[Rfam]
RNA sequence: GCUGCCGAGGAGCGUUGCAGCCCUGGUCGUUGGCCUCAUCGUGUGCGAUGGUGCGCAGCGGCUGCGCAGGGCGAGGCUCGGCAGCAGAUGGCCCCACCGUUGGUGGGUGGCAUCCUUGCCGCAACGACGCUCGCCCACG
Numbered sequence: 001g002c003u004g005c006c007g008a009g010g011a012g013c014g015u016u017g018c019a020g021c022c023c024u025g026g027u028c029g030u031u032g033g034c035c036u037c038a039u040c041g042u043g044u045g046c047g048a049u050g051g052u053g054c055g056c057a058g059c060g061g062c063u064g065c066g067c068a069g070g071g072c073g074a075g076g077c078u079c080g081g082c083a084g085c086a087g088a089u090g091g092c093c094c095c096a097c098c099g100u101u102g103g104u105g106g107g108u109g110g111c112a113u114c115c116u117u118g119c120c121g122c123a124a125c126g127a128c129g130c131u132c133g134c135c136c137a138c139g
Base pairs, nucleotide, nucleotide: 002084003083004082005081006080007079008078021071022070023069024068025067
SAH (S-adenosyl-L-homocysteine) riboswitch aptamer: a 139-nucleotide sequence from Tepidicella xavieri. It scores 44 bits against the family's covariance model. Its family is annotated with S-adenosylhomocysteine metabolic process and regulation of gene expression in the Gene Ontology. Taxonomically the source falls in Tepidicella (Bacteria, Pseudomonadati, Pseudomonadota, Betaproteobacteria).